[Rfam]
Bacterial RNase P class A: a 367-nucleotide sequence. Gene Ontology terms of the family: ribonuclease P activity, tRNA processing and dimeric ribonuclease P complex. Rfam classes the family as a ribozyme.

RNA sequence: CUACUAGGUCAGGCUAUCGCUUUUAUUUAGGUAAGGGAGGAAAGUCCGGACAGCACAGAGCAGCGCACCACCUAACGGGUGGGGUUUCGGAAACGAAAUACAGAAAGUGCCACAGAAAAUAACCGCCUCUUUUGUGGGGUAAGGGUGAAAAUGUAGGGUAAGAGCCUACGCGCUACUAUGGCAACAUAGUAAUGGGGUAAACCUUGCGUGCUGAAAUGCCAAAUAGGCGAAUGCUUGAGAGCGGCUCGCUCGAUGUUCGUGGGUUGGCAGCUAGAGGUACUACGCGAGUAGUAUCCCAGAUAAAUGAUAGCCGGUCUCAGGGCCAUAUGAGACUAACAGAAUCCGGCUUAUUGACCUUAUUAGUUGU
Numbered sequence: 001c002u003a004c005u006a007g008g009u010c011a012g013g014c015u016a017u018c019g020c021u022u023u024u025a026u027u028u029a030g031g032u033a034a035g036g037g038a039g040g041a042a043a044g045u046c047c048g049g050a051c052a053g054c055a056c057a058g059a060g061c062a063g064c065g066c067a068c069c070a071c072c073u074a075a076c077g078g079g080u081g082g083g084g085u086u087u088c089g090g091a092a093a094c095g096a097a098a099u100a101c102a103g104a105a106a107g108u109g110c111c112a113c114a115g116a117a118a119a120u121a122a123c124c125g126c127c128u129c130u131u132u133u134g135u136g137g138g139g140u141a142a143g144g145g146u147g148a149a150a151a152u153g154u155a156g157g158g159u160a161a162g163a164g165c166c167u168a169c170g171c172g173c174u175a176c177u178a179u180g181g182c183a184a185c186a187u188a189g190u191a192a193u194g195g196g197g198u199a200a201a202c203c204u205u206g207c208g209u210g211c212u213g214a215a216a217u218g219c220c221a222a223a224u225a226g227g228c229g230a231a232u233g234c235u236u237g238a239g240a241g242c243g244g245c246u247c248g249c250u251c252g253a254u255g256u257u258c259g260u261g262g263g264u265u266g267g268c269a270g271c272u273a274g275a276g277g278u279a280c281u282a283c284g285c286g287a288g289u290a291g292u293a294u295c296c297c298a299g300a301u302a303a304a305u306g307a308u309a310g311c312c313g314g315u316c317u318c319a320g321g322g323c324c325a326u327a328u329g330a331g332a333c334u335a336a337c338a339g340a341a342u343c344c345g346g347c348u349u350a351u352u353g354a355c356c357u358u359a360u361u362a363g364u365u366g367u
Base pairs, nucleotide, nucleotide: 001363002362003361005359006357007356008355009354010353011351012312013311014310015309016308017307018306020037021036022035023034024033025032026031042349043348044347046346047345048344049343050342051213052212053211054210058247059246060245061244063209064208065207066206067205068082069081070080071079072078083101084099085098086097087096088095089094102204103203107202108201109198110197111196123144124143125140126139127138128137129136152170153169154168155167156166157165172193174191175190176189177188178187179186180185217269218268219267220266227260228259229258230257231256232255239251240250241249242248276295277294278293279292280291281290282289283288